[Rfam]
RNA: Bacterial RNase P class A
RNA sequence: CCAGCUGGCCGGGCGGCCGCACCCGCAAGAGUCGAAAGACCGCGGGUGAGGAAAGUCCGGGCUCCAUGGAAACACGGUGCCGGAUAACGUCCGGCGGGGGUGACCCCAGGGAUAGUGCCACAGAAAGCAAACCGCCGCGGAUUCCGCGGUAAGGGUGAAAGGGUGGGGUAAGAGCCCACCGCGCGACUGGCGACAGGAGCGGCACGGUAAACCCCACCGGGAGCAAAACCGAAUAGGGAUGACAUGAGGGGCGACCCUCAGGGCUGUUUCUGGCUUCGUCAUCCGGGUAGGUUGCGUGAGGCGCAUGGCAACAUGCGCCCAAGAUGAAUGGCCGCCACGUUCUUGUGCCGCAAGGCACAAGGGCCAUACAGAACCCGGCUUACAGGCCGGCUGGCACA
Numbered sequence: 001c002c003a004g005c006u007g008g009c010c011g012g013g014c015g016g017c018c019g020c021a022c023c024c025g026c027a028a029g030a031g032u033c034g035a036a037a038g039a040c041c042g043c044g045g046g047u048g049a050g051g052a053a054a055g056u057c058c059g060g061g062c063u064c065c066a067u068g069g070a071a072a073c074a075c076g077g078u079g080c081c082g083g084a085u086a087a088c089g090u091c092c093g094g095c096g097g098g099g100g101u102g103a104c105c106c107c108a109g110g111g112a113u114a115g116u117g118c119c120a121c122a123g124a125a126a127g128c129a130a131a132c133c134g135c136c137g138c139g140g141a142u143u144c145c146g147c148g149g150u151a152a153g154g155g156u157g158a159a160a161g162g163g164u165g166g167g168g169u170a171a172g173a174g175c176c177c178a179c180c181g182c183g184c185g186a187c188u189g190g191c192g193a194c195a196g197g198a199g200c201g202g203c204a205c206g207g208u209a210a211a212c213c214c215c216a217c218c219g220g221g222a223g224c225a226a227a228a229c230c231g232a233a234u235a236g237g238g239a240u241g242a243c244a245u246g247a248g249g250g251g252c253g254a255c256c257c258u259c260a261g262g263g264c265u266g267u268u269u270c271u272g273g274c275u276u277c278g279u280c281a282u283c284c285g286g287g288u289a290g291g292u293u294g295c296g297u298g299a300g301g302c303g304c305a306u307g308g309c310a311a312c313a314u315g316c317g318c319c320c321a322a323g324a325u326g327a328a329u330g331g332c333c334g335c336c337a338c339g340u341u342c343u344u345g346u347g348c349c350g351c352a353a354g355g356c357a358c359a360a361g362g363g364c365c366a367u368a369c370a371g372a373a374c375c376c377g378g379c380u381u382a383c384a385g386g387c388c389g390g391c392u393g394g395c396a397c398a
Base pairs, nucleotide, nucleotide: 001394002393003392004391005390006389007388008387009386010385011383012336013335014334015333016332017331018330020048021047022046023045024044025043026042053381054380055379057378058377059376060375061374062223063222064221065220071271075219076218077217078216079215080094081093082092083091084090095109096107097106098105099104110214111213115212116211117208118207119206132154133153134150135149136148137147138146139145140144162180163179164178165177166176167175181203182201183200184199187196188195189194227293228292229291230290237284238283239282240281241280242279263277266274267273300319301318302317303316304315305314306313307312